[Rfam]
Nucleotides: 079
Stems, first nucleotide, its partner, number of pairs: 007029005012023003062075004
Number, partner (000 for none) and nucleotide at each position: 001000c002000g003000u004000g005000a006000a007029u008028u009027c010026c011025c012023g013022a014021g015000u016000g017000g018000u019000a020000a021014c022013u023012c024000c025011g026010g027009g028008a029007a030000g031000a032000u033000a034000c035000a036000a037000a038000a039000a040000a041000a042000u043000a044000u045000g046000a047000u048000u049000a050000a051000g052000u053000g054000g055000u056000a057000g058000g059000a060000a061000u062075c063074a064073a065072c066000g067000a068000a069000c070000a071000u072065g073064u074063u075062g076000c077000a078000a079000u